This 130-nucleotide RNA from Thermoactinomyces sp. AS95 belongs to the Rfam family "Ribosomal protein L20 leader".

RNA sequence: UCAUGCAAGAAGAAGCGCCCGCUUCUCACCUGGUCAACGCGGAGUUGGCAGGUUCUGAUGCAACUGAUUUUCCUGUUGGAUAUUGGAAGCAAAGUGUGGGCGUUUUCUGCGCUUACACUUUUUUAUUUUU
Numbered sequence: 001u002c003a004u005g006c007a008a009g010a011a012g013a014a015g016c017g018c019c020c021g022c023u024u025c026u027c028a029c030c031u032g033g034u035c036a037a038c039g040c041g042g043a044g045u046u047g048g049c050a051g052g053u054u055c056u057g058a059u060g061c062a063a064c065u066g067a068u069u070u071u072c073c074u075g076u077u078g079g080a081u082a083u084u085g086g087a088a089g090c091a092a093a094g095u096g097u098g099g100g101c102g103u104u105u106u107c108u109g110c111g112c113u114u115a116c117a118c119u120u121u122u123u124u125a126u127u128u129u130u
Stems, first nucleotide, its partner, number of pairs: 011026006028053003034048005095117009
The match comes from Rfam's covariance-model search (71 bits). NCBI's taxonomy places the organism under Bacteria, Bacillati, Bacillota, Caryophanales, Thermoactinomyces. The family's consensus secondary structure was predicted with CMfinder.